[Rfam]
RNA sequence: AUGCUGGUGUAGCUCAGUGGUUAUUUGGACCAUUAAUUUAGUUGCAGAGUUCACAGACCUCUAUCUCUCUCUGGGAUCGAGCCACCGGUGCUAUCCAGCGUUUUU
Numbered sequence: 001a002u003g004c005u006g007g008u009g010u011a012g013c014u015c016a017g018u019g020g021u022u023a024u025u026u027g028g029a030c031c032a033u034u035a036a037u038u039u040a041g042u043u044g045c046a047g048a049g050u051u052c053a054c055a056g057a058c059c060u061c062u063a064u065c066u067c068u069c070u071c072u073g074g075g076a077u078c079g080a081g082c083c084a085c086c087g088g089u090g091c092u093a094u095c096c097a098g099c100g101u102u103u104u105u
Stems, first nucleotide, its partner, number of pairs: 002100006012089003017085004025081002028078002
RNA: Vault RNA
Organism: Amphiprion percula